Shown here is a 46-nucleotide RNA sequence from Cavia porcellus, a member of the family "Histone 3' UTR stem-loop".
The mRNAs of metazoan histone genes lack a poly-A tail. 3' end processing occurs at a site between a highly conserved stem-loop (modelled by this family) and a purine rich region around 20 nts downstream (the histone downstream element, or HDE).
The match comes from Rfam's covariance-model search (42 bits).
Pairs were carried over by alignment from the consensus structure, which is taken from published work.
[Rfam]
RNA sequence: UCAAAGGCUCUUUUCAGAGCCACUCAUAUUUUCGAAAGAGAACUGU
Numbered sequence: 001u002c003a004a005a006g007g008c009u010c011u012u013u014u015c016a017g018a019g020c021c022a023c024u025c026a027u028a029u030u031u032u033c034g035a036a037a038g039a040g041a042a043c044u045g046u
Stems, first nucleotide, its partner, number of pairs: 006021006